[Rfam]
RNA: Small nucleolar RNA Z221/R21b
Organism: Morella rubra
RNA sequence: GGGACGAUGAUGAGCUUAAGAGAAAGUCAUGCACCACUCUGAUGAUGUUUACAUCAAUCUGUGCUGAUAAUUUUCUCAUACCCAUACAUUUUCUGAGCUCCU
Numbered sequence: 001g002g003g004a005c006g007a008u009g010a011u012g013a014g015c016u017u018a019a020g021a022g023a024a025a026g027u028c029a030u031g032c033a034c035c036a037c038u039c040u041g042a043u044g045a046u047g048u049u050u051a052c053a054u055c056a057a058u059c060u061g062u063g064c065u066g067a068u069a070a071u072u073u074u075c076u077c078a079u080a081c082c083c084a085u086a087c088a089u090u091u092u093c094u095g096a097g098c099u100c101c102u
Base pairs, nucleotide, nucleotide: 001102002101003100004099